[Rfam]
RNA sequence: CCCACCACUGUACCUCUCUUGUAAUGCCUUGACUAGGACAGUCCAGAGGUGAGCUGACAGAAAAUGCCAACUUAAGAAACAGUUAUUUUUCUUGGGGGUAACUUUGUGCCAAAGUUUGGGAACAGGC
Numbered sequence: 001c002c003c004a005c006c007a008c009u010g011u012a013c014c015u016c017u018c019u020u021g022u023a024a025u026g027c028c029u030u031g032a033c034u035a036g037g038a039c040a041g042u043c044c045a046g047a048g049g050u051g052a053g054c055u056g057a058c059a060g061a062a063a064a065u066g067c068c069a070a071c072u073u074a075a076g077a078a079a080c081a082g083u084u085a086u087u088u089u090u091c092u093u094g095g096g097g098g099u100a101a102c103u104u105u106g107u108g109c110c111a112a113a114g115u116u117u118g119g120g121a122a123c124a125g126g127c
Base pairs, nucleotide, nucleotide: 005049006048008046009045010044017037018036019035021033022031023030065120067118069117070115071114072113073112076109080106081105082102083101086098087097088096
This 127-nucleotide RNA sequence from Balaeniceps rex belongs to the Rfam family "Small nucleolar RNA SNORA65". Lineage of the source: Eukaryota > Craniata > Vertebrata > Aequornithes > Balaeniceps. Gene Ontology terms of the family: RNA processing and nucleolus. Pairs were carried over by alignment from the consensus structure, which was predicted with RNAalifold. The literature on the family includes a 2001 paper in EMBO J by Huttenhofer et al., "RNomics: an experimental approach that identifies 201 candidates for novel, small, non-messenger RNAs in mouse". The family is grouped with related families in Rfam's "SNORA65 clan".